This 164-nucleotide RNA sequence from Pogona vitticeps belongs to the Rfam family "U1 spliceosomal RNA".
RNA sequence: ACUCAUACCUUGCAGGGGAAAGAUCAUGCUCAUGAAAGUGGUUUUCCCAGGGUGAGGCUCAUCCGUUGCACUUCAGAUGUGCUGAUCCCUGUGAUUUCCCCAAAUGUGGGGAACUCAAUUGCAUAAUUUGUGGUAGUGGGGGAUUGUAUUUGUGUUUUCCCUGG
Dot-bracket structure: ...........((((((((((.(((((..........)))))))))))((((.(.(((.((((............)))).)))..))))).((((((.((.......)).))).))).))))..............(((((.(..(((....)))..)))))).
Numbered sequence: 001a002c003u004c005a006u007a008c009c010u011u012g013c014a015g016g017g018g019a020a021a022g023a024u025c026a027u028g029c030u031c032a033u034g035a036a037a038g039u040g041g042u043u044u045u046c047c048c049a050g051g052g053u054g055a056g057g058c059u060c061a062u063c064c065g066u067u068g069c070a071c072u073u074c075a076g077a078u079g080u081g082c083u084g085a086u087c088c089c090u091g092u093g094a095u096u097u098c099c100c101c102a103a104a105u106g107u108g109g110g111g112a113a114c115u116c117a118a119u120u121g122c123a124u125a126a127u128u129u130g131u132g133g134u135a136g137u138g139g140g141g142g143a144u145u146g147u148a149u150u151u152g153u154g155u156u157u158u159c160c161c162u163g164g
Stems, first nucleotide, its partner, number of pairs: 012122004016048006023042005049090004054086001056083003060079004092117003095113003099109002137163005143158001146155003

A reference for the family is Pomeranz Krummel et al. (2009), "Crystal structure of human spliceosomal U1 snRNP at 5.5 A resolution", Nature.
It scores 128 bits against the family's covariance model.